[Rfam]
RNA: Glycine riboswitch aptamer
RNA sequence: UUGAAGGCGGGAGGAGAGACCAUCAUCCGUGGCGCCGAAGGAGCAAACCGGGGAUGUACACCGGUGAAUCUCUCAGGCAAAAGGAGGCCCGCCGGACG
Number, nucleotide and partner (000 for none) at each position: 001u000002u000003g000004a000005a000006g093007g092008c091009g090010g089011g088012a000013g000014g000015a000016g000017a000018g000019a000020c032021c031022a030023u029024c000025a000026u000027c000028c000029g023030u022031g021032g020033c000034g078035c077036c076037g074038a073039a000040g000041g072042a071043g070044c000045a000046a000047a065048c064049c063050g062051g061052g000053g000054a000055u000056g000057u000058a000059c000060a000061c051062c050063g049064g048065u047066g000067a000068a000069u000070c043071u042072c041073u038074c037075a000076g036077g035078c034079a000080a000081a000082a000083g000084g000085a000086g000087g000088c011089c010090c009091g008092c007093c006094g000095g000096a000097c000098g000